[Rfam]
RNA sequence: GGCAGGAAUUCGGGAGACACCGGCGCUGCGCCGGGGCCGAAGGAGAAGCCGCCCCGGCAAGCUCUCAGGCAAAAGGACCGUCUUCCCCAA
Dot-bracket structure: .....(((..(((......((((.......)))).(((((..(((...((.....))....))))).))).......)))..))).....
Rfam assigns this 90-nucleotide sequence from Paracoccus sp. 228 to the family "Glycine riboswitch aptamer".
The base pairs follow the family's consensus structure.
It scores 57 bits against the family's covariance model.